[Rfam]
RNA sequence: CGUUGUAAUUCCUCUGGAGUUAAACGGCGUUGGAAGGGGGUUCGAUUCCCCCCGCCUCCACCAAAAGAGCUGUCGGUUUGCCGGAUGUCCACUAAUACUGGAAUGGCCUACUAACCUAACAACUCUUCUGACGGGGGCGCCAGGCUUCGACAGCGUUGGGAGAUGAAGGCGGCAACGGCAGUAGGCGAACACUGCGGCACUUGUGCCAUGAAGUAGCAAAAAAGUAUUCGCAAACGACGAAUCUUAUCGCCUGGUCGCUUGA
Dot-bracket structure: (((((........((..........(((.(((...(((((.......)))))(((((((.........................................................................)))))))...........))).))).........))....))))).((((........))))....................................................................

The family of this 262-nucleotide RNA from Novimethylophilus kurashikiensis is "permuted transfer-messenger RNA". Taxonomically the source falls in Novimethylophilus (Bacteria, Pseudomonadati, Betaproteobacteria, Nitrosomonadales). Rfam classes the family as a non-coding RNA gene. It scores 95 bits against the family's covariance model. Rfam's curators write: Bacterial tmRNA, also known as 10Sa RNA or SsrA, is named for its dual tRNA and mRNA-like properties. Its role is to liberate the mRNA from a stalled ribosome. To accomplish this part of the tmRNA is used as a reading frame that ends in a translation stop signal. The broken mRNA is replaced in the ribosome by the tmRNA and translation of the tmRNA leads to addition of a proteolysis tag to the incomplete protein enabling recognition by a protease. Recently a number of permuted tmRNA genes have been found encoded in two parts. tmRNAs have been identified in eubacteria and some chloroplasts but are absent from archaeal and eukaryote nuclear genomes.